[Rfam]
Overview
Rfam assigns this 136-nucleotide RNA from Scleropages formosus to the family "U11 spliceosomal RNA". Rfam classes the family as a spliceosomal small nuclear RNA. On this family, see Schneider et al., Proc Natl Acad Sci U S A 2004: "Identification of an evolutionarily divergent U11 small nuclear ribonucleoprotein particle in Drosophila". The match comes from Rfam's covariance-model search (122 bits).

RNA sequence: AAAAAGGGCUUCUGUCAUGACUGACACAGGGAGGGGGCGGGCUUCGCUCCCUCUCUGCGGAAUCGCCAUCAAGAGAUUUCGGAAGCACAAUUUUUGAACAAGGGGGCUGCUGAUGAUCGCUUGUCUCGGCGCCCCA
Numbered sequence: 001a002a003a004a005a006g007g008g009c010u011u012c013u014g015u016c017a018u019g020a021c022u023g024a025c026a027c028a029g030g031g032a033g034g035g036g037g038c039g040g041g042c043u044u045c046g047c048u049c050c051c052u053c054u055c056u057g058c059g060g061a062a063u064c065g066c067c068a069u070c071a072a073g074a075g076a077u078u079u080c081g082g083a084a085g086c087a088c089a090a091u092u093u094u095u096g097a098a099c100a101a102g103g104g105g106g107c108u109g110c111u112g113a114u115g116a117u118c119g120c121u122u123g124u125c126u127c128g129g130c131g132c133c134c135c136a
Stems, first nucleotide, its partner, number of pairs: 008086005013026005027057012058081007104134004109130005115125003
Dot-bracket structure: .......((((((((((....)))))((((((((((((.......))))))))))))(((((((..........)))))))))))).................((((.(((((.(((.....))))))))))))..